[Rfam]
RNA sequence: AAAGGAGCAAUAACCCAUUUCUUGUUCUGUUAAGAAACCGUUACUGCUCCUUUACU
Numbered sequence: 001a002a003a004g005g006a007g008c009a010a011u012a013a014c015c016c017a018u019u020u021c022u023u024g025u026u027c028u029g030u031u032a033a034g035a036a037a038c039c040g041u042u043a044c045u046g047c048u049c050c051u052u053u054a055c056u
Stems, first nucleotide, its partner, number of pairs: 001053009011043004019036006
The record is a 56-nucleotide RNA sequence, which matches "Plastid-psbA-3 3UTR RNA" in Rfam. Its Rfam clan is "Plastid-psbA 3UTR RNA clan". A reference for the family is Richter et al. (2023), "Retrograde signaling in plants: A critical review focusing on the GUN pathway and beyond", Plant Commun. The family's consensus secondary structure was predicted with LocARNA. Plastid psbA-3 is a non-coding RNA (ncRNA) present in plastids. It was identified in inverted repeat sequences in the 3 prime untranslate region (3UTR) of photosystem II quinone-binding protein (psbA). By type it is a cis-regulatory element. Rfam's curators put it in the seed alignment.